[Rfam]
Small nucleolar RNA Z157/R69/R10: a 95-nucleotide RNA sequence from Papaver nudicaule. It is annotated as a C/D-box small nucleolar RNA. Pairs were carried over by alignment from the consensus structure, which was predicted with PFOLD. A reference for the family is Chen et al. (2003), "The high diversity of snoRNAs in plants: identification and comparative study of 120 snoRNA genes from Oryza sativa", Nucleic Acids Res.
RNA sequence: AGUUUUGCAGUGAUGCCACUAUUGUGGACUAGAGUUUCUGAUUAGGGAUCUUCACCCUUAUCUGACGACAAACCCUUGGCUGUCUGAGCACUAUU
Numbered sequence: 001a002g003u004u005u006u007g008c009a010g011u012g013a014u015g016c017c018a019c020u021a022u023u024g025u026g027g028a029c030u031a032g033a034g035u036u037u038c039u040g041a042u043u044a045g046g047g048a049u050c051u052u053c054a055c056c057c058u059u060a061u062c063u064g065a066c067g068a069c070a071a072a073c074c075c076u077u078g079g080c081u082g083u084c085u086g087a088g089c090a091c092u093a094u095u
Stems, first nucleotide, its partner, number of pairs: 001095003006090003035067001037065002042060001044058004